[Rfam]
RNA sequence: UUUGCGGAUAGGAACCAGUACGGGUACUUUACUCGUCAUGGGCCGAAAACCGCGCAAAUAACUAGGAGGGAAAUGGUCGGAUGUUGGAGAGAAAUACGCCAAUGUCCAUUACCACCCUGACUUAACAUUU
Number, nucleotide and partner (000 for none) at each position: 001u000002u000003u054004g053005c052006g051007g050008a000009u000010a000011g044012g043013a000014a000015c041016c040017a039018g000019u000020a036021c035022g034023g033024g032025u031026a000027c000028u000029u000030u000031a025032c024033u023034c022035g021036u020037c000038a000039u017040g016041g015042g000043c012044c011045g000046a000047a000048a000049a000050c007051c006052g005053c004054g003055c000056a000057a000058a000059u000060a000061a000062c000063u000064a000065g000066g122067a118068g117069g116070g115071a000072a000073a000074u000075g113076g112077u111078c000079g107080g106081a000082u104083g103084u102085u101086g100087g000088a000089g099090a000091g097092a000093a000094a000095u000096a000097c091098g000099c089100c086101a085102a084103u083104g082105u000106c080107c079108a000109u000110u000111a077112c076113c075114a000115c070116c069117c068118u067119g000120a000121c000122u066123u000124a000125a000126c000127a000128u000129u000130u000